[Rfam]
RNA sequence: AGACUGUGAAAUCUCUGCAGGCAAGUGUGAUGUCCUUAUAGCAAUCUCACAACUACCUGUAGAGAUUCUACAAUCU
Number, nucleotide and partner (000 for none) at each position: 001a000002g000003a074004c000005u072006g071007u070008g000009a000010a067011a066012u065013c064014u063015c062016u061017g060018c000019a000020g058021g057022c000023a054024a000025g000026u051027g050028u049029g048030a047031u000032g000033u000034c000035c000036u000037u000038a000039u000040a000041g000042c000043a000044a000045u000046c000047u030048c029049a028050c027051a026052a000053c000054u023055a000056c000057c021058u020059g000060u017061a016062g015063a014064g013065a012066u011067u010068c000069u000070a007071c006072a005073a000074u003075c000076u000
The family of this 76-nucleotide RNA from Cinclus mexicanus is "mir-216 microRNA precursor family". Pairs were carried over by alignment from the consensus structure, which was predicted with WAR. The family has 57 seed sequences and 1,667 matches in Rfam 15.1. The match comes from Rfam's covariance-model search (66 bits). The organism belongs to Cinclus, within Eukaryota. The literature on the family includes a 2008 paper in Gene by Shao et al., "Identification of novel chicken microRNAs and analysis of their genomic organization". The family is grouped with related families in Rfam's "mir-216 clan".